A member of the RNA family "Repression of heat shock gene expression (ROSE) element" from Acetobacteraceae bacterium AT-5844, 86 nucleotides long. Rfam's curators write: This family represents a 5' UTR cis-regulatory element found in heat shock mRNAs and is known as the ROSE (repression of heat shock gene expression) element. The ROSE element is a negative regulator of heat shock gene expression. The secondary structure is thought to be regulated by temperature. This regulation blocks access to the ribosome binding site under normal conditions. It is annotated as an RNA thermoregulator. Rfam links the family to the GO terms response to temperature stimulus and regulation of translation. The family's consensus secondary structure is taken from published work.
RNA sequence: GCCGAGGCCGAACGGCUCGGCGGAACGGGUGCCCAGGCACCCGACACUUGUACCCAUAUUGCUCAAAGAGGAUGUGGUUAUGAGGA
Dot-bracket structure: ((((((.((....))))))))....(((((((....)))))))...((((((.(((((((.(((...)))))))))).))))))..